The family of this 260-nucleotide RNA sequence from Beta vulgaris is "RNase MRP".
RNA sequence: UUCCAAGGUUGGAGUGAAUGGGCCAUGGGCUUGCUUAAAGCGGGUCUAGGCCCUGGAAAGUCCCCGGGCCGCUUUCCACAGAGAUGUGGGCUCGGCAACGAGUGUACUUGAUGCUCAGGAAAUUCAGUUUCUCACUUGUGGGAAACGGGCUGAGACAUGUGUGGAGCCUUAAUUUCCUGCAGAAGUAUUAAUUGGCCGAUAAUCACAGUUAUUCACUUGGCUUCUACUGAAGCUAACUGAACGGGGCUUACAACUUUGGA
Numbered sequence: 001u002u003c004c005a006a007g008g009u010u011g012g013a014g015u016g017a018a019u020g021g022g023c024c025a026u027g028g029g030c031u032u033g034c035u036u037a038a039a040g041c042g043g044g045u046c047u048a049g050g051c052c053c054u055g056g057a058a059a060g061u062c063c064c065c066g067g068g069c070c071g072c073u074u075u076c077c078a079c080a081g082a083g084a085u086g087u088g089g090g091c092u093c094g095g096c097a098a099c100g101a102g103u104g105u106a107c108u109u110g111a112u113g114c115u116c117a118g119g120a121a122a123u124u125c126a127g128u129u130u131c132u133c134a135c136u137u138g139u140g141g142g143a144a145a146c147g148g149g150c151u152g153a154g155a156c157a158u159g160u161g162u163g164g165a166g167c168c169u170u171a172a173u174u175u176c177c178u179g180c181a182g183a184a185g186u187a188u189u190a191a192u193u194g195g196c197c198g199a200u201a202a203u204c205a206c207a208g209u210u211a212u213u214c215a216c217u218u219g220g221c222u223u224c225u226a227c228u229g230a231a232g233c234u235a236a237c238u239g240a241a242c243g244g245g246g247c248u249u250a251c252a253a254c255u256u257u258g259g260a
Base pairs, nucleotide, nucleotide: 002260003259004258005257006256007255008254012218013217014216015215016214017213020053021052022051023050030044031043032042033041034040035039058249059248060247062246063245064244065243077088078087079086080085090103091102092101093100094099122189124187128185129184130183131182132181138177140175147169148168149167150166157162220233221232222231223230224229
Clan: RNaseP clan. The organism belongs to Beta vulgaris, within Eukaryota. A search with the family's covariance model found it, with a score of 71 bits.